[Rfam]
RNA sequence: UCUAUCGCGAGGUAGAAUCUGAAGGAAGUCGGCGGCAAACCUCUGGCCCGAGGACCACGAACUCCAGGUGAGGCUAGCGACAGUUGGAUGAAUCUGCAAAGCAAGAUAAAGUCCAUGCUACCAAAGGCUGUCGAGAGUAAAUGGAGCGGGUAGAUGGAGGGAAAGAUAACGUU
Numbered sequence: 001u002c003u004a005u006c007g008c009g010a011g012g013u014a015g016a017a018u019c020u021g022a023a024g025g026a027a028g029u030c031g032g033c034g035g036c037a038a039a040c041c042u043c044u045g046g047c048c049c050g051a052g053g054a055c056c057a058c059g060a061a062c063u064c065c066a067g068g069u070g071a072g073g074c075u076a077g078c079g080a081c082a083g084u085u086g087g088a089u090g091a092a093u094c095u096g097c098a099a100a101g102c103a104a105g106a107u108a109a110a111g112u113c114c115a116u117g118c119u120a121c122c123a124a125a126g127g128c129u130g131u132c133g134a135g136a137g138u139a140a141a142u143g144g145a146g147c148g149g150g151u152a153g154a155u156g157g158a159g160g161g162a163a164a165g166a167u168a169a170c171g172u173u
Stems, first nucleotide, its partner, number of pairs: 001016006028173001030171002036165001040160006046151005062146005073138003078133006086114004092107004

Group II catalytic intron D1-D4-3: a 173-nucleotide RNA sequence from Desulforamulus ferrireducens. The source organism's lineage runs through Bacteria, Bacillota, Clostridia, Eubacteriales and Desulforamulus. A reference for the family is Bonen and Vogel (2001), "The ins and outs of group II introns", Trends Genet. It scores 131 bits against the family's covariance model.